[Rfam]
RNA sequence: CGAGAGUAUGAGGCCACAGAAGAAGUGCCCGUGGCAUGGCCAUGUCAGAUUCCAACAAAUCUGUGAAUUCUGCU
Numbered sequence: 001c002g003a004g005a006g007u008a009u010g011a012g013g014c015c016a017c018a019g020a021a022g023a024a025g026u027g028c029c030c031g032u033g034g035c036a037u038g039g040c041c042a043u044g045u046c047a048g049a050u051u052c053c054a055a056c057a058a059a060u061c062u063g064u065g066a067a068u069u070c071u072g073c074u
Stems, first nucleotide, its partner, number of pairs: 012041004018074002021071004025037003046063006
Background: The family of this 74-nucleotide sequence from Alligator mississippiensis is "Mammalian CPEB3 ribozyme". Pairs were carried over by alignment from the consensus structure, which is taken from published work. Rfam describes the family as follows. The mammalian CPEB3 ribozyme is a self cleaving RNA located in the second intron of the CPEB3 gene which belongs to a family of genes regulating messenger RNA polyadenylation. This ribozyme is highly conserved and found only in mammals. The CPEB3 ribozyme is structurally and biochemically related to the human hepatitis delta virus (HDV) ribozyme and the HDV ribozyme is proposed to have arisen from the human transcriptome. There is currently only one other known self cleaving ribozyme in mammals, the CoTC motif.